[Rfam]
RNA sequence: AAAAUUUAAUAUUCUAUAACUUAUUUAUAUCCAGGAUAGGGCUGGACGUUUCUACCUCGCGACCAUUGUAAAGGCGAGACAAUAAGCUACUUUUUGUUUCUU
Numbered sequence: 001a002a003a004a005u006u007u008a009a010u011a012u013u014c015u016a017u018a019a020c021u022u023a024u025u026u027a028u029a030u031c032c033a034g035g036a037u038a039g040g041g042c043u044g045g046a047c048g049u050u051u052c053u054a055c056c057u058c059g060c061g062a063c064c065a066u067u068g069u070a071a072a073g074g075c076g077a078g079a080c081a082a083u084a085a086g087c088u089a090c091u092u093u094u095u096g097u098u099u100c101u102u
Stems, first nucleotide, its partner, number of pairs: 018088001020086006030046005056078005
Notes
A member of the RNA family "Purine riboswitch aptamer" from Lactovum miscens, 102 nucleotides long. It scores 56 bits against the family's covariance model. Taxonomically the source falls in Lactovum (Bacteria, Bacilli, Lactobacillales, Streptococcaceae). The family's consensus secondary structure is taken from published work.